[Rfam]
RNA sequence: GCUGGUGGACUGAUGACCCUUUCCCCGUCAGAGCGACAGUGUUGACCACUGCUGUUCGAGCCAGGUCGUGUCUGAUGCACCAGC
Numbered sequence: 001g002c003u004g005g006u007g008g009a010c011u012g013a014u015g016a017c018c019c020u021u022u023c024c025c026c027g028u029c030a031g032a033g034c035g036a037c038a039g040u041g042u043u044g045a046c047c048a049c050u051g052c053u054g055u056u057c058g059a060g061c062c063a064g065g066u067c068g069u070g071u072c073u074g075a076u077g078c079a080c081c082a083g084c
Base pairs, nucleotide, nucleotide: 001084002083003082004081005080006079007078009076

The family of this 84-nucleotide sequence from Piprites chloris is "Small nucleolar SNORD12/SNORD106". On this family, see Huttenhofer et al., EMBO J 2001: "RNomics: an experimental approach that identifies 201 candidates for novel, small, non-messenger RNAs in mouse". The family's RNA type in Rfam is C/D-box small nucleolar RNA.